[Rfam]
RNA: FMN riboswitch aptamer (RFN element)
RNA sequence: CAUUGUUCUCAGGGCGGGGCGAAAUUCCCCACCGGCGGUAAGGCAGCAAUGCCAAGCCCGCGAGCGCCUUCGGACCAUUUGGUCCCUGGGGUCAGCAGAUCCGGUGUGACUCCGGAGCCGACGGUAUAGUCCGGAUGAAAGAGAACGGGA
Numbered sequence: 001c002a003u004u005g006u007u008c009u010c011a012g013g014g015c016g017g018g019g020c021g022a023a024a025u026u027c028c029c030c031a032c033c034g035g036c037g038g039u040a041a042g043g044c045a046g047c048a049a050u051g052c053c054a055a056g057c058c059c060g061c062g063a064g065c066g067c068c069u070u071c072g073g074a075c076c077a078u079u080u081g082g083u084c085c086c087u088g089g090g091g092u093c094a095g096c097a098g099a100u101c102c103g104g105u106g107u108g109a110c111u112c113c114g115g116a117g118c119c120g121a122c123g124g125u126a127u128a129g130u131c132c133g134g135a136u137g138a139a140a141g142a143g144a145a146c147g148g149g150a
Base pairs, nucleotide, nucleotide: 003148004147005146006145007144008143009142010141017029018028019027031130032129033120034119035061036060037059038058056118057117064096065095100116101115102114103113104112122133123132124131